[Rfam]
The family of this 63-nucleotide RNA from Alicyclobacillus acidoterrestris is "Fluoride riboswitch aptamer (crcB RNA motif)".
The family's consensus secondary structure is taken from published work.
A search with the family's covariance model found it, with a score of 54 bits.
Its family is annotated with positive regulation of gene expression and response to fluoride in the Gene Ontology.

RNA sequence: AAUCGCAUCGGUGAUGGAGCUCACCAUUAACCGCCCGUAAGGGAUAAUGGCUCCUGCAAGGAA
Numbered sequence: 001a002a003u004c005g006c007a008u009c010g011g012u013g014a015u016g017g018a019g020c021u022c023a024c025c026a027u028u029a030a031c032c033g034c035c036c037g038u039a040a041g042g043g044a045u046a047a048u049g050g051c052u053c054c055u056g057c058a059a060g061g062a063a
Stems, first nucleotide, its partner, number of pairs: 010025004016054006034043003